[Rfam]
Description
This 306-nucleotide sequence from Ziziphus jujuba belongs to the Rfam family "Plant signal recognition particle RNA". The base pairs follow the family's consensus structure, which is taken from published work. The source organism's lineage runs through Eukaryota, Spermatophyta, fabids, Ziziphus and Ziziphus jujuba.
RNA sequence: GCCGAGCUCAGUAACGCGGGCUUGUAACCUAUGUGGGGGCAUUAGACUGAUGGAACUCCGACGCCGUCCCUUUCGAUCGGAUCUGGAUUAGCUGAGUACUGGCCCGCCCGUUCCAAGUCGAAAGUCGAUCCAAGUGGUUUGGGCGAAGGUUUGGGCUUCUUGGAUCAUAGUAGGGAGGGCACAGCGUGAGGCUGGCUUCACAGAGCAGCGAUCACCUCCUACUUCCGGCAGUGGAAGGAUAACGGGUCGGUGCUAUCCGGGUCCAACAGGGUCCAUUGGGCGGUCUCCAGUUGGACCAUCACUUUU
Numbered sequence: 001g002c003c004g005a006g007c008u009c010a011g012u013a014a015c016g017c018g019g020g021c022u023u024g025u026a027a028c029c030u031a032u033g034u035g036g037g038g039g040c041a042u043u044a045g046a047c048u049g050a051u052g053g054a055a056c057u058c059c060g061a062c063g064c065c066g067u068c069c070c071u072u073u074c075g076a077u078c079g080g081a082u083c084u085g086g087a088u089u090a091g092c093u094g095a096g097u098a099c100u101g102g103c104c105c106g107c108c109c110g111u112u113c114c115a116a117g118u119c120g121a122a123a124g125u126c127g128a129u130c131c132a133a134g135u136g137g138u139u140u141g142g143g144c145g146a147a148g149g150u151u152u153g154g155g156c157u158u159c160u161u162g163g164a165u166c167a168u169a170g171u172a173g174g175g176a177g178g179g180c181a182c183a184g185c186g187u188g189a190g191g192c193u194g195g196c197u198u199c200a201c202a203g204a205g206c207a208g209c210g211a212u213c214a215c216c217u218c219c220u221a222c223u224u225c226c227g228g229c230a231g232u233g234g235a236a237g238g239a240u241a242a243c244g245g246g247u248c249g250g251u252g253c254u255a256u257c258c259g260g261g262u263c264c265a266a267c268a269g270g271g272u273c274c275a276u277u278g279g280g281c282g283g284u285c286u287c288c289a290g291u292u293g294g295a296c297c298a299u300c301a302c303u304u305u306u
Base pairs, nucleotide, nucleotide: 001040002039003038004023005022006021007020008019009018028037029036030035044305045304046303048301049300050299051298052297053296056293058290060288061286063284064283065282066281068280069279070278073275075273076272077271078270079264080263081262082261083260084259085258086257087256089255090254091253093252094251099250100249101248102247103246104245105244106243108238109237111236112235113234114233115232117229118228119227120226122224123223124222125221127166128165129164130163131162132161133160134159136157137156138155139154140153141152142151143150144149173220174219175218176217177216178215183212185210186209187208192203193202194201